Nitrogen stress-induced RNA 4: a 71-nucleotide sequence from Microcoleus sp. FACHB-831. On this family, see Klahn et al., Proc Natl Acad Sci U S A 2015: "The sRNA NsiR4 is involved in nitrogen assimilation control in cyanobacteria by targeting glutamine synthetase inactivating factor IF7". It scores 48 bits against the family's covariance model. About the family: Former name SyR12, is a cyanobacterial non-coding RNA which plays role in the regulation of Glutamine synthetase (GS), a key enzyme in biological nitrogen assimilation. NsiR4 interacts with the 5'UTR of the mRNA of the GS inactivating factor IF7 (gifA mRNA) and reduces its expression. NsiR4 expression is under positive control of the nitrogen control transcription factor (NtcA). NsR4 is a first example of an sRNA controlling the assimilation of a micronutrient.

RNA sequence: AAAGCAGCAGCGUAAGCUAAUACCACCCUCCGAUUGCUUUAAGAAAACCGCCCUUAUUGUAGAGGCGGUUU
Numbered sequence: 001a002a003a004g005c006a007g008c009a010g011c012g013u014a015a016g017c018u019a020a021u022a023c024c025a026c027c028c029u030c031c032g033a034u035u036g037c038u039u040u041a042a043g044a045a046a047a048c049c050g051c052c053c054u055u056a057u058u059g060u061a062g063a064g065g066c067g068g069u070u071u
Stems, first nucleotide, its partner, number of pairs: 003018003045071008
The family's RNA type in Rfam is small RNA. Rfam links the family to the GO term posttranscriptional regulation of gene expression. The family's consensus secondary structure was predicted with RNAalifold.